Shown here is a 141-nucleotide RNA from Zophobas morio, a member of the family "Small nucleolar RNA SNORA57". By type it is an H/ACA-box small nucleolar RNA. The source organism's lineage runs through Eukaryota, Panarthropoda, Mandibulata, Tenebrionidae and Zophobas. Its family is annotated with RNA processing and nucleolus in the Gene Ontology. The match comes from Rfam's covariance-model search (48 bits). From the family's description: U99 belongs to the H/ACA class of snoRNAs which are thought to guide the sites of modification of uridines to pseudouridines, the target for this family is unknown. For this family Rfam cites "Identification of 13 novel human modification guide RNAs" (Vitali et al., Nucleic Acids Res, 2003).
RNA sequence: CCUUCCUUUUUUGGCAUGCCUCUGCGUAGACCAAUCGGCAGAGCAUGAAUGCUGAAGGAAGGGAAAUUACAGUUUGGGAAAUAUGCCUUCGGUGUCCACACGUUUCUUGUCUGGAUCCCAUCCUCAAAUUUCCCCACAUUG
Numbered sequence: 001c002c003u004u005c006c007u008u009u010u011u012u013g014g015c016a017u018g019c020c021u022c023u024g025c026g027u028a029g030a031c032c033a034a035u036c037g038g039c040a041g042a043g044c045a046u047g048a049a050u051g052c053u054g055a056a057g058g059a060a061g062g063g064a065a066a067u068u069a070c071a072g073u074u075u076g077g078g079a080a081a082u083a084u085g086c087c088u089u090c091g092g093u094g095u096c097c098a099c100a101c102g103u104u105u106c107u108u109g110u111c112u113g114g115a116u117c118c119c120a121u122c123c124u125c126a127a128a129u130u131u132c133c134c135c136a137c138a139u140u141g
Base pairs, nucleotide, nucleotide: 001062002061003060004059005058015047016046017045018044019043022041023040024039025038076133077132078131079130080129095115096114097113098112100110101109